RNA sequence: AACAAGAGAAGAGGCUGCCAAACUAAAAGAGGAAACUAAUCUAAUCUCCCAGCAGAGUGCAGCAAACCAACUUCGGCUUGAUCUUAUGUGUUAGAUCUAGAUGAUGUUGCUUUGCAGCAUUCUGUAGAGAGAUUAGAUUAGUUUUCUCUUUUAGUUUGGCAGCCUCUUUUCUUGUU
Numbered sequence: 001a002a003c004a005a006g007a008g009a010a011g012a013g014g015c016u017g018c019c020a021a022a023c024u025a026a027a028a029g030a031g032g033a034a035a036c037u038a039a040u041c042u043a044a045u046c047u048c049c050c051a052g053c054a055g056a057g058u059g060c061a062g063c064a065a066a067c068c069a070a071c072u073u074c075g076g077c078u079u080g081a082u083c084u085u086a087u088g089u090g091u092u093a094g095a096u097c098u099a100g101a102u103g104a105u106g107u108u109g110c111u112u113u114g115c116a117g118c119a120u121u122c123u124g125u126a127g128a129g130a131g132a133u134u135a136g137a138u139u140a141g142u143u144u145u146c147u148c149u150u151u152u153a154g155u156u157u158g159g160c161a162g163c164c165u166c167u168u169u170u171c172u173u174g175u176u
Stems, first nucleotide, its partner, number of pairs: 001176013015162001017160032050127001052125005058119003062115005068109004073104003077100002080097005086091001
Notes
MIR6457 microRNA precursor family: a 176-nucleotide sequence from Populus tomentosa. Pairs were carried over by alignment from the consensus structure, which was predicted with RNAalifold.